RNA sequence: UGAGUAACAAAUUGAGAAGUUUAUUGGCGGGUUGUUGUUUUGCGGUCGACAUUUCUGCUUACUGAACUUCUUACAUUU
Numbered sequence: 001u002g003a004g005u006a007a008c009a010a011a012u013u014g015a016g017a018a019g020u021u022u023a024u025u026g027g028c029g030g031g032u033u034g035u036u037g038u039u040u041u042g043c044g045g046u047c048g049a050c051a052u053u054u055c056u057g058c059u060u061a062c063u064g065a066a067c068u069u070c071u072u073a074c075a076u077u078u
Stems, first nucleotide, its partner, number of pairs: 014072008026059003030055002034050004
RNA: Small nucleolar RNA snoR109
Organism: Nicotiana tabacum